[Rfam]
The record is a 60-nucleotide RNA sequence, which matches "GP20-b RNA" in Rfam. Rfam's curators put it in the seed alignment.
RNA sequence: GGCUGCGGCAGGGCUGAAACAGCCGCACAGACGGUGACGGCAACCACCUAAAAACGCCUA
Numbered sequence: 001g002g003c004u005g006c007g008g009c010a011g012g013g014c015u016g017a018a019a020c021a022g023c024c025g026c027a028c029a030g031a032c033g034g035u036g037a038c039g040g041c042a043a044c045c046a047c048c049u050a051a052a053a054a055c056g057c058c059u060a
Stems, first nucleotide, its partner, number of pairs: 001014001003012002006025004033048004